[Rfam]
Nucleotides: 168
Stems, first nucleotide, its partner, number of pairs: 005164005011154002013097001015150003020144003025140008039115005045074005054065004081106003087100003117128003
Number, partner (000 for none) and nucleotide at each position: 001000u002000u003000u004000g005164u006163a007162a008161u009160a010000a011154g012153u013097u014000a015150g016149g017148u018000g019000a020144g021143g022142c023000u024000c025140c026139u027138a028137u029136a030135c031134a032133a033000a034000c035000a036000u037000a038000g039115g040114c041113u042112a043111u044000u045074g046073c047072u048071c049070a050000g051000a052000a053000a054065u055064g056063u057062c058000g059000a060000g061000a062057g063056a064055c065054a066000c067000c068000a069000a070049u071048g072047a073046g074045u075000a076000g077000a078000a079000c080000a081106a082105g083104a084000c085000u086000g087100g088099u089098c090000g091000a092000g093000g094000a095000g096000a097013a098089g099088g100087c101000u102000u103000u104083u105082c106081u107000c108000a109000a110000a111043a112042u113041a114040g115039c116000u117128a118127a119126g120000a121000g122000u123000g124000a125000u126119c127118u128117u129000u130000a131000c132000g133032u134031u135030g136029u137028a138027u139026a140025g141000u142022g143021c144020u145000a146000a147000a148017g149016c150015u151000c152000a153012a154011c155000g156000u157000u158000c159000a160009u161008g162007u163006u164005g165000a166000u167000g168000u
This 168-nucleotide RNA from Enterococcus faecalis belongs to the Rfam family "M-box riboswitch aptamer (ykoK leader)". Pairs were carried over by alignment from the consensus structure. The sequence is in the family's curated seed alignment. The literature on the family includes a 2004 paper in Proc Natl Acad Sci U S A by Barrick et al., "New RNA motifs suggest an expanded scope for riboswitches in bacterial genetic control". M-box riboswitch, also know as ykoK leader is described as a metaloregulatory RNA that sense divalent metals and function as a genetic control element of genes related to divalent metal transport in bacteria. It was first reported upstream of the B.subtilis ykoK gene and genes with related functions in other bacteria.